[Rfam]
RNA: Fluoride riboswitch aptamer (crcB RNA motif)
RNA sequence: GUUUAGUCGGGCGAUGGCGUCCGCCCGGGCUUCGAGCCCGAACCGCCCGUUAAGGGCUGAUGACGCCUGUUCUACC
Number, nucleotide and partner (000 for none) at each position: 001g000002u000003u000004u000005a000006g000007u000008c000009g000010g025011g024012c023013g022014a000015u000016g067017g066018c065019g064020u063021c062022c013023g012024c011025c010026c000027g000028g000029g000030c000031u000032u000033c000034g000035a000036g000037c000038c000039c000040g000041a000042a000043c000044c000045g057046c056047c055048c054049g000050u000051u000052a000053a000054g048055g047056g046057c045058u000059g000060a000061u000062g021063a020064c019065g018066c017067c016068u000069g000070u000071u000072c000073u000074a000075c000076c000